The family of this 43-nucleotide RNA sequence from Escherichia coli is "nuoG RNA". The organism belongs to Escherichia coli, within Bacteria. It is annotated as a cis-regulatory element.
[Rfam]
RNA sequence: GAAUUUCGAUUAACGCUCAGUCUCUGACUGAGAAAACUGGAAG
Numbered sequence: 001g002a003a004u005u006u007c008g009a010u011u012a013a014c015g016c017u018c019a020g021u022c023u024c025u026g027a028c029u030g031a032g033a034a035a036a037c038u039g040g041a042a043g
Stems, first nucleotide, its partner, number of pairs: 016032007